[Rfam]
RNA sequence: GGUCGGCGGCGGACGAACGUCCUCGCCAACCCGGUCAGGUCCGGAAGGAAGCAGCCGUAACGAGUUUUCGUUUGGGUCGCAUUGUCGAUCUUC
Numbered sequence: 001g002g003u004c005g006g007c008g009g010c011g012g013a014c015g016a017a018c019g020u021c022c023u024c025g026c027c028a029a030c031c032c033g034g035u036c037a038g039g040u041c042c043g044g045a046a047g048g049a050a051g052c053a054g055c056c057g058u059a060a061c062g063a064g065u066u067u068u069c070g071u072u073u074g075g076g077u078c079g080c081a082u083u084g085u086c087g088a089u090c091u092u093c
Stems, first nucleotide, its partner, number of pairs: 001090005006083001009080003014074006022064004032057004040049003
Record summary: This 93-nucleotide RNA from Aestuariispira insulae belongs to the Rfam family "Bacterial small signal recognition particle RNA". Rfam classes the family as a non-coding RNA gene. NCBI's taxonomy places the organism under Bacteria, Pseudomonadati, Alphaproteobacteria, Aestuariispiraceae, Aestuariispira. Rfam describes the family as follows. The signal recognition particle (SRP) is a universally conserved ribonucleoprotein involved in the co-translational targeting of proteins to membranes. The match comes from Rfam's covariance-model search (60 bits).